[Rfam]
RNA sequence: GCCGCCCGGCCGCCGAGUCCGCGUCCACGCGGAGCCGGGGACCCACCUCUCCUGGGGUGAAUCGGUGCGCUGUGCCGUGCCGUAGGGCGACUUCCAGCCCGAACCCGUCAGCUAACCCGGUAGGCGGCAUGGAAGCAAGG
Numbered sequence: 001g002c003c004g005c006c007c008g009g010c011c012g013c014c015g016a017g018u019c020c021g022c023g024u025c026c027a028c029g030c031g032g033a034g035c036c037g038g039g040g041a042c043c044c045a046c047c048u049c050u051c052c053u054g055g056g057g058u059g060a061a062u063c064g065g066u067g068c069g070c071u072g073u074g075c076c077g078u079g080c081c082g083u084a085g086g087g088c089g090a091c092u093u094c095c096a097g098c099c100c101g102a103a104c105c106c107g108u109c110a111g112c113u114a115a116c117c118c119g120g121u122a123g124g125c126g127g128c129a130u131g132g133a134a135g136c137a138a139g140g
Base pairs, nucleotide, nucleotide: 011126012125013124014123018033019032020031021030022029023028034121035120036119037118038117039116044054045053055106056105057104063082064081065080066079067078068077085100086099087098088097
c-di-AMP riboswitch aptamer (ydaO/yuaA leader): a 140-nucleotide RNA from Sphaerimonospora thailandensis. NCBI's taxonomy places the organism under Bacteria, Bacillati, Actinomycetota, Streptosporangiales, Sphaerimonospora. About the family: This family represents a conserved RNA structure found upstream of the ydaO and yuaA genes in Bacillus subtilis and related genes in other bacteria.